[Rfam]
RNA: Small nucleolar RNA SNORD60
RNA sequence: AGCCAGUGAUGACAAACCUAAUUUCUUUCUGACACCUCAUAUGAGAGCUUCCAGCUCCUGAUUCAAACCUUUGUCUGAGGCUA
Numbered sequence: 001a002g003c004c005a006g007u008g009a010u011g012a013c014a015a016a017c018c019u020a021a022u023u024u025c026u027u028u029c030u031g032a033c034a035c036c037u038c039a040u041a042u043g044a045g046a047g048c049u050u051c052c053a054g055c056u057c058c059u060g061a062u063u064c065a066a067a068c069c070u071u072u073g074u075c076u077g078a079g080g081c082u083a
Stems, first nucleotide, its partner, number of pairs: 001082004047055003